Shown here is a 63-nucleotide RNA from Mytilus coruscus, a member of the family "Selenocysteine insertion sequence 1". On this family, see Lambert et al., Biochimie 2002: "A survey of metazoan selenocysteine insertion sequences".
RNA sequence: CUGACUGUUCAUGACGUUAAAAUACUAAAAUCCCUGGGAUGUGUUUUAGUUGAUUUUAGUCUC
Numbered sequence: 001c002u003g004a005c006u007g008u009u010c011a012u013g014a015c016g017u018u019a020a021a022a023u024a025c026u027a028a029a030a031u032c033c034c035u036g037g038g039a040u041g042u043g044u045u046u047u048a049g050u051u052g053a054u055u056u057u058a059g060u061c062u063c
Stems, first nucleotide, its partner, number of pairs: 003061003016050010030040003

The family's consensus secondary structure is taken from published work. The source organism's lineage runs through Eukaryota, Protostomia, Spiralia, Bivalvia and Mytilus. Its family is annotated with selenocysteine incorporation in the Gene Ontology. By type it is a cis-regulatory element.